[Rfam]
RNA sequence: UGCCCCAUCUUACCCAGCAGUGUUUGGGUGCUGCUUGGACGUCUCUAAUACUGCCGGGUAACGAUGGAGCU
Numbered sequence: 001u002g003c004c005c006c007a008u009c010u011u012a013c014c015c016a017g018c019a020g021u022g023u024u025u026g027g028g029u030g031c032u033g034c035u036u037g038g039a040c041g042u043c044u045c046u047a048a049u050a051c052u053g054c055c056g057g058g059u060a061a062c063g064a065u066g067g068a069g070c071u
Stems, first nucleotide, its partner, number of pairs: 002070002005067005010061006017054006024048005
Rfam assigns this 71-nucleotide RNA sequence from Sarcophilus harrisii to the family "mir-8/mir-141/mir-200 microRNA precursor family". Pairs were carried over by alignment from the consensus structure, which was predicted with RNAalifold. Taxonomically the source falls in Sarcophilus (Eukaryota, Sarcopterygii, Tetrapoda, Theria). Rfam links the family to the GO terms RISC complex and miRNA-mediated post-transcriptional gene silencing. Rfam 15.1 lists 2,669 matches to the family in 883 species.